[Rfam]
RNA sequence: UAGAGGGACUACCGUCGCAGGAGAGAUGGCGCUUACUGCUAUCAAAGAGCCAUGCAUGUUCAAUUUAAGUAGCAAGCUUCAUCUCUCUUCGACUGAAGCCCCUUUCAAU
Numbered sequence: 001u002a003g004a005g006g007g008a009c010u011a012c013c014g015u016c017g018c019a020g021g022a023g024a025g026a027u028g029g030c031g032c033u034u035a036c037u038g039c040u041a042u043c044a045a046a047g048a049g050c051c052a053u054g055c056a057u058g059u060u061c062a063a064u065u066u067a068a069g070u071a072g073c074a075a076g077c078u079u080c081a082u083c084u085c086u087c088u089u090c091g092a093c094u095g096a097a098g099c100c101c102c103u104u105u106c107a108a109u
Stems, first nucleotide, its partner, number of pairs: 005101003009098002012095001014093004019089003023085007

The record is a 109-nucleotide RNA from Durio zibethinus, which matches "MIR5225 microRNA precursor family" in Rfam. The match comes from Rfam's covariance-model search (76 bits). The family has 6 seed sequences and 63 matches in Rfam 15.1.